[Rfam]
RNA sequence: GGGGGCGACAUGGCUUCGACGCUGAUGACAACCCCUUAGGUGCAUGCCGAGAGCGUGAUGUAUCUCGUAAAUACCACAUCACAAUUGAAUAGUCGCAAACGACGAAAACUACGCUCAGGGCGCUCUGGCAGCUUAAACACUGUCUGUGCCCUACCCGGAAGCAACGCGCCUGGUCGUUGCCGAUGGGACAUGAGCUCGUAUAGCCAGGAUCGCGUUUAGUUCUGUUCUCGCGCUAGACGUUAAACUUUAGAGAAAUCGCACUUUGGAAUCCUGCCCGUUGGAGUCCCGAGUGUUAAAUCAAACAACGGAACUAAGCAUGUAGAGCCGAUGGGCGAGUGUCGGCGGACGCGGGUUCGAUCCCCGCCGCCUCCACCA
Numbered sequence: 001g002g003g004g005g006c007g008a009c010a011u012g013g014c015u016u017c018g019a020c021g022c023u024g025a026u027g028a029c030a031a032c033c034c035c036u037u038a039g040g041u042g043c044a045u046g047c048c049g050a051g052a053g054c055g056u057g058a059u060g061u062a063u064c065u066c067g068u069a070a071a072u073a074c075c076a077c078a079u080c081a082c083a084a085u086u087g088a089a090u091a092g093u094c095g096c097a098a099a100c101g102a103c104g105a106a107a108a109c110u111a112c113g114c115u116c117a118g119g120g121c122g123c124u125c126u127g128g129c130a131g132c133u134u135a136a137a138c139a140c141u142g143u144c145u146g147u148g149c150c151c152u153a154c155c156c157g158g159a160a161g162c163a164a165c166g167c168g169c170c171u172g173g174u175c176g177u178u179g180c181c182g183a184u185g186g187g188a189c190a191u192g193a194g195c196u197c198g199u200a201u202a203g204c205c206a207g208g209a210u211c212g213c214g215u216u217u218a219g220u221u222c223u224g225u226u227c228u229c230g231c232g233c234u235a236g237a238c239g240u241u242a243a244a245c246u247u248u249a250g251a252g253a254a255a256u257c258g259c260a261c262u263u264u265g266g267a268a269u270c271c272u273g274c275c276c277g278u279u280g281g282a283g284u285c286c287c288g289a290g291u292g293u294u295a296a297a298u299c300a301a302a303c304a305a306c307g308g309a310a311c312u313a314a315g316c317a318u319g320u321a322g323a324g325c326c327g328a329u330g331g332g333c334g335a336g337u338g339u340c341g342g343c344g345g346a347c348g349c350g351g352g353u354u355c356g357a358u359c360c361c362c363g364c365c366g367c368c369u370c371c372a373c374c375a
Stems, first nucleotide, its partner, number of pairs: 001371007020344008033332003037328001039326003043319005048067005055082006125146001127144005151192001156182002161180004169208006212240009224256003228252001258293006265286003269282003273311001276308001278304001348364005
RNA: transfer-messenger RNA
Organism: Halomonas huangheensis